[Rfam]
RNA sequence: UGUUAAAAACUCCAUCCAUUUUUACUGUUAAAAACUGGUCAUUAUACAUUAGUAUGAGGUGCACGUGACACACCACGUGUAAUUGCCUAAUUAUUCCCUUACCCAUACUGGUUUUUAACAAUAAAAACAUAUGAUAUUUUUAACA
Numbered sequence: 001u002g003u004u005a006a007a008a009a010c011u012c013c014a015u016c017c018a019u020u021u022u023u024a025c026u027g028u029u030a031a032a033a034a035c036u037g038g039u040c041a042u043u044a045u046a047c048a049u050u051a052g053u054a055u056g057a058g059g060u061g062c063a064c065g066u067g068a069c070a071c072a073c074c075a076c077g078u079g080u081a082a083u084u085g086c087c088u089a090a091u092u093a094u095u096c097c098c099u100u101a102c103c104c105a106u107a108c109u110g111g112u113u114u115u116u117a118a119c120a121a122u123a124a125a126a127a128c129a130u131a132u133g134a135u136a137u138u139u140u141u142a143a144c145a
Base pairs, nucleotide, nucleotide: 002144003143004142005141006140007139008138009137013133014132015131019127020126021125022124023123024122026120028118029117030116031115032114033113
RNA: MIR7502 microRNA precursor family
Organism: Gossypium laxum